[Rfam]
RNA sequence: AAUCGCUGUGAUGACUCUGUAAAAGUUCAAGCUCAACAGACCGGAUCGUCAGGGGUUUCUCUACUUUGAGAGCCUUUGCAUGUCGAGUCUACUUCUAUCCUGAGCGAUC
Numbered sequence: 001a002a003u004c005g006c007u008g009u010g011a012u013g014a015c016u017c018u019g020u021a022a023a024a025g026u027u028c029a030a031g032c033u034c035a036a037c038a039g040a041c042c043g044g045a046u047c048g049u050c051a052g053g054g055g056u057u058u059c060u061c062u063a064c065u066u067u068g069a070g071a072g073c074c075u076u077u078g079c080a081u082g083u084c085g086a087g088u089c090u091a092c093u094u095c096u097a098u099c100c101u102g103a104g105c106g107a108u109c
Stems, first nucleotide, its partner, number of pairs: 002108005
RNA: Small nucleolar RNA Z107/R87
Organism: Ipomoea nil